[Rfam]
RNA: Small nucleolar RNA SNORD34
Organism: Pleuronectes platessa
RNA sequence: GCUGUCUGUGAUGUCAAUCUAAAUACCUUACCUACCUUGUUUGAGUUACCUCUGAAAAUAAACAAUAUCUGAGACAUGC
Numbered sequence: 001g002c003u004g005u006c007u008g009u010g011a012u013g014u015c016a017a018u019c020u021a022a023a024u025a026c027c028u029u030a031c032c033u034a035c036c037u038u039g040u041u042u043g044a045g046u047u048a049c050c051u052c053u054g055a056a057a058a059u060a061a062a063c064a065a066u067a068u069c070u071g072a073g074a075c076a077u078g079c
Stems, first nucleotide, its partner, number of pairs: 001079002003076004